RNA sequence: CUCCUUGGUACACCUAACCUCUCAUAGGCUAUGUCUGACUUGAUUUCAAAGGCACAGACAAAGCCUAGUAGAGGCUAGAUUUAUUAGGAAGA
Numbered sequence: 001c002u003c004c005u006u007g008g009u010a011c012a013c014c015u016a017a018c019c020u021c022u023c024a025u026a027g028g029c030u031a032u033g034u035c036u037g038a039c040u041u042g043a044u045u046u047c048a049a050a051g052g053c054a055c056a057g058a059c060a061a062a063g064c065c066u067a068g069u070a071g072a073g074g075c076u077a078g079a080u081u082u083a084u085u086a087g088g089a090a091g092a
Base pairs, nucleotide, nucleotide: 012080014078015077016076018074019073020072027065028064029063030062032060033059034058035057036056
A member of the RNA family "mir-282 microRNA precursor family" from Scaptodrosophila lebanonensis, 92 nucleotides long. The family's consensus secondary structure was predicted with RNAalifold. The family has 21 seed sequences and 136 matches in Rfam 15.1. The literature on the family includes a 2009 paper in BMC Genomics by Li et al., "Direct sequencing and expression analysis of a large number of miRNAs in Aedes aegypti and a multi-species survey of novel mosquito miRNAs". A search with the family's covariance model found it, with a score of 56 bits.